Notes:
A member of the RNA family "c-di-AMP riboswitch aptamer (ydaO/yuaA leader)" from Litchfieldia stipae, 150 nucleotides long. This family represents a conserved RNA structure found upstream of the ydaO and yuaA genes in Bacillus subtilis and related genes in other bacteria. NCBI's taxonomy places the organism under Bacteria, Bacillati, Bacilli, Bacillaceae, Litchfieldia.
RNA sequence: AAUUGAAUAUCGCUGAAUCCCUAAUUAGGGAGCGGGGGAACCAAAUUGUGCAAGUAAUUCUGCACACGGGGUGUAUCCUUUAAGUUUAAGGUAGGAGUCUCUUCAUCCGAAUCCGACAGCUAACCUCGUAAGCACUAGGAGAGAGAAUCC
Dot-bracket structure: ...........(((...(((........)))((((((....(.........................)(((.....((((.......))))..(((.........)))...))).........)))))).))).................
Numbered sequence: 001a002a003u004u005g006a007a008u009a010u011c012g013c014u015g016a017a018u019c020c021c022u023a024a025u026u027a028g029g030g031a032g033c034g035g036g037g038g039a040a041c042c043a044a045a046u047u048g049u050g051c052a053a054g055u056a057a058u059u060c061u062g063c064a065c066a067c068g069g070g071g072u073g074u075a076u077c078c079u080u081u082a083a084g085u086u087u088a089a090g091g092u093a094g095g096a097g098u099c100u101c102u103u104c105a106u107c108c109g110a111a112u113c114c115g116a117c118a119g120c121u122a123a124c125c126u127c128g129u130a131a132g133c134a135c136u137a138g139g140a141g142a143g144a145g146a147a148u149c150c
Stems, first nucleotide, its partner, number of pairs: 012133003018031003032129006042068001069114003077091004094108003